Record summary: Shown here is a 66-nucleotide RNA from Peribacillus cavernae, a member of the family "Bacillaceae-1 RNA". The source organism's lineage runs through Bacteria, Bacillati, Bacillota, Bacilli and Peribacillus. The family's RNA type in Rfam is small RNA.

[Rfam]
RNA sequence: UGACCUCGAGGCCGACUAAGAGCGCCCCGUCCUGUGGCGACGUCGGCACUAGUACAUCCUUGUACG
Numbered sequence: 001u002g003a004c005c006u007c008g009a010g011g012c013c014g015a016c017u018a019a020g021a022g023c024g025c026c027c028c029g030u031c032c033u034g035u036g037g038c039g040a041c042g043u044c045g046g047c048a049c050u051a052g053u054a055c056a057u058c059c060u061u062g063u064a065c066g
Base pairs, nucleotide, nucleotide: 011047012046013045014044015043016042024038025037026036028034052065053064054063055062